[Rfam]
RNA: 6S / SsrS RNA
RNA sequence: UUUUCUCUGGGAUGUUUGCGAGCGGGCCAGUCCCCUGAGCCGAUAUUUCAUACCAACAGAAUGUGGUGUUUCAUUUUUUGUGUGCAUGCCCGGUCCGUCCGGGAAGCCUGAUAAUAAUGACGGCAUGUUCACCUUGAACCAAGGGUUCAAGGGUUACAGCCUGCAGCGGCAUCCCGGAGAUCUC
Numbered sequence: 001u002u003u004u005c006u007c008u009g010g011g012a013u014g015u016u017u018g019c020g021a022g023c024g025g026g027c028c029a030g031u032c033c034c035c036u037g038a039g040c041c042g043a044u045a046u047u048u049c050a051u052a053c054c055a056a057c058a059g060a061a062u063g064u065g066g067u068g069u070u071u072c073a074u075u076u077u078u079u080g081u082g083u084g085c086a087u088g089c090c091c092g093g094u095c096c097g098u099c100c101g102g103g104a105a106g107c108c109u110g111a112u113a114a115u116a117a118u119g120a121c122g123g124c125a126u127g128u129u130c131a132c133c134u135u136g137a138a139c140c141a142a143g144g145g146u147u148c149a150a151g152g153g154u155u156a157c158a159g160c161c162u163g164c165a166g167c168g169g170c171a172u173c174c175c176g177g178a179g180a181u182c183u184c
Stems, first nucleotide, its partner, number of pairs: 004180012017168003032153003036149006059130003063126003067122002070120001072119004077114002084107002089103005